[Rfam]
RNA sequence: AUUGAGUGGGAAUAAAGAUAUAACAUUGUUUAAAGUGAAAUUACUGUUCUAACAACGUUUUAGCUAUUAUGUAAUGGCUGAAAACAAUUAAAUAUUAACUUGUUUACCACCAAAAACCCCACCAAUACAACAAGUAUUGGUGGGGUUUUUAG
Numbered sequence: 001a002u003u004g005a006g007u008g009g010g011a012a013u014a015a016a017g018a019u020a021u022a023a024c025a026u027u028g029u030u031u032a033a034a035g036u037g038a039a040a041u042u043a044c045u046g047u048u049c050u051a052a053c054a055a056c057g058u059u060u061u062a063g064c065u066a067u068u069a070u071g072u073a074a075u076g077g078c079u080g081a082a083a084a085c086a087a088u089u090a091a092a093u094a095u096u097a098a099c100u101u102g103u104u105u106a107c108c109a110c111c112a113a114a115a116a117c118c119c120c121a122c123c124a125a126u127a128c129a130a131c132a133a134g135u136a137u138u139g140g141u142g143g144g145g146u147u148u149u150u151a152g
Stems, first nucleotide, its partner, number of pairs: 008107001010105003050083001053080002058076001060074003086096003114148014
RNA: Listeria sRNA rli38
Organism: Bacillus thuringiensis